Annotation: The family of this 146-nucleotide RNA from Sorghum bicolor is "small nucleolar RNA snoR134". Rfam classes the family as an H/ACA-box small nucleolar RNA. On this family, see Chen and Wu, Nucleic Acids Res 2009: "Mining small RNA sequencing data: a new approach to identify small nucleolar RNAs in Arabidopsis". The base pairs follow the family's consensus structure, which was predicted with RNAalifold.
[Rfam]
RNA sequence: UUGCACGGUGCUAACCCCGGGCUUGUCGGAUCUCUACCCUUUGAAGAAGGAAGCCCCAAUGCCUGUGCUAGAUCCACCAUGCCAUUCAGUGUUGCAGGCCCUGACGAAUCUCGUGAUUGGUCUGUGUCAAAGCAAUGGAUACAUAU
Numbered sequence: 001u002u003g004c005a006c007g008g009u010g011c012u013a014a015c016c017c018c019g020g021g022c023u024u025g026u027c028g029g030a031u032c033u034c035u036a037c038c039c040u041u042u043g044a045a046g047a048a049g050g051a052a053g054c055c056c057c058a059a060u061g062c063c064u065g066u067g068c069u070a071g072a073u074c075c076a077c078c079a080u081g082c083c084a085u086u087c088a089g090u091g092u093u094g095c096a097g098g099c100c101c102u103g104a105c106g107a108a109u110c111u112c113g114u115g116a117u118u119g120g121u122c123u124g125u126g127u128c129a130a131a132g133c134a135a136u137g138g139a140u141a142c143a144u145a146u
Stems, first nucleotide, its partner, number of pairs: 003068006010062002019056005024050001026047002082138005090129002093126006100115001